RNA sequence: GUUAACUCAUCGGGGGGCCCUGCCGGGCUGAGAAGCGUUAGACGCUGACCCGUGAACCUGAACCGGGUAAUGCCGGCGGAGGAAAUGAGGGUCGCAAAAUC
Numbered sequence: 001g002u003u004a005a006c007u008c009a010u011c012g013g014g015g016g017g018c019c020c021u022g023c024c025g026g027g028c029u030g031a032g033a034a035g036c037g038u039u040a041g042a043c044g045c046u047g048a049c050c051c052g053u054g055a056a057c058c059u060g061a062a063c064c065g066g067g068u069a070a071u072g073c074c075g076g077c078g079g080a081g082g083a084a085a086u087g088a089g090g091g092u093c094g095c096a097a098a099a100u101c
Base pairs, nucleotide, nucleotide: 006089007088008087009086010085011052012051013050014049016046017028018027019026020025035045036044037043038042057082058081059080063076064075065074066073
TPP riboswitch aptamer (THI element): a 101-nucleotide RNA from Alphaproteobacteria bacterium HT1-32. A search with the family's covariance model found it, with a score of 75 bits. Gene Ontology term of the family: thiamine pyrophosphate binding.